[Rfam]
RNA sequence: AUCGCUUCUCGGCCUUUUGGCUGAGAGCAAGUGUAGUACGGUUCUCACCAAUUUAAUGUCUGAUAUGUCCUCUAUUCGAGGCAGUAUAUUAAACAGAUGUUUGGAGCAGAGAGUUGGAAUAGGCGCUGGCUCCACCCACUCCACACAUCAGCCUGGUAUUGCAGUACGUCCAGGAACGGUGCGCCCCCU
Numbered sequence: 001a002u003c004g005c006u007u008c009u010c011g012g013c014c015u016u017u018u019g020g021c022u023g024a025g026a027g028c029a030a031g032u033g034u035a036g037u038a039c040g041g042u043u044c045u046c047a048c049c050a051a052u053u054u055a056a057u058g059u060c061u062g063a064u065a066u067g068u069c070c071u072c073u074a075u076u077c078g079a080g081g082c083a084g085u086a087u088a089u090u091a092a093a094c095a096g097a098u099g100u101u102u103g104g105a106g107c108a109g110a111g112a113g114u115u116g117g118a119a120u121a122g123g124c125g126c127u128g129g130c131u132c133c134a135c136c137c138a139c140u141c142c143a144c145a146c147a148u149c150a151g152c153c154u155g156g157u158a159u160u161g162c163a164g165u166a167c168g169u170c171c172a173g174g175a176a177c178g179g180u181g182c183g184c185c186c187c188c189u
Stems, first nucleotide, its partner, number of pairs: 007026003011022004047064001049062002067082001069081004111141004116136002122133002125130001146181004152174005
This 189-nucleotide RNA from Vicugna pacos belongs to the Rfam family "U2 spliceosomal RNA". The family is grouped with related families in Rfam's "U2 clan". About the family: U2 is a small nuclear RNA (snRNA) component of the spliceosome (involved in pre-mRNA splicing). Complementary binding between U2 snRNA (in an area lying towards the 5' end but 3' to hairpin I) and the branchpoint sequence (BPS) of the intron results the bulging out of an unpaired adenosine, on the BPS, which initiates a nucleophilic attack at the intronic 5' splice site, thus starting the first of two transesterification reactions that mediate splicing. A search with the family's covariance model found it, with a score of 118 bits.